[Rfam]
The family of this 131-nucleotide RNA from Oryctolagus cuniculus is "Small nucleolar RNA SNORA68". Gene Ontology terms of the family: nucleolus and RNA processing. It scores 127 bits against the family's covariance model. Rfam's curators write: U68 is a member of the H/ACA class of small nucleolar RNAs (snoRNAs) which act as guides in the the modification of uridines to pseudouridines. For this family Rfam cites "The family of box ACA small nucleolar RNAs is defined by an evolutionarily conserved secondary structure and ubiquitous sequence elements essential for RNA accumulation" (Ganot et al., Genes Dev, 1997). Rfam 15.1 lists 1,079 matches to the family in 643 species. The family's RNA type in Rfam is H/ACA-box small nucleolar RNA.
RNA sequence: CCCGCACCUAAACCCAAGAAUCGCUGUUGCUGUAGCAGCGGUUUAAACACAGGUGCGCAUAGCAAGCGGAUCUCGUCGCCUUUGGGGGCUGUGGCUGUGCCCCUGGAAGUGAAUCUGGAGGUCCUAUACUC
Numbered sequence: 001c002c003c004g005c006a007c008c009u010a011a012a013c014c015c016a017a018g019a020a021u022c023g024c025u026g027u028u029g030c031u032g033u034a035g036c037a038g039c040g041g042u043u044u045a046a047a048c049a050c051a052g053g054u055g056c057g058c059a060u061a062g063c064a065a066g067c068g069g070a071u072c073u074c075g076u077c078g079c080c081u082u083u084g085g086g087g088g089c090u091g092u093g094g095c096u097g098u099g100c101c102c103c104u105g106g107a108a109g110u111g112a113a114u115c116u117g118g119a120g121g122u123c124c125u126a127u128a129c130u131c
Base pairs, nucleotide, nucleotide: 003057004056005055006054007053008052009051019043020042021041022040023039024038025037026036027035028034068124069123070122071121072120073119074118080109081108082107083106084104085103086102087101088100089099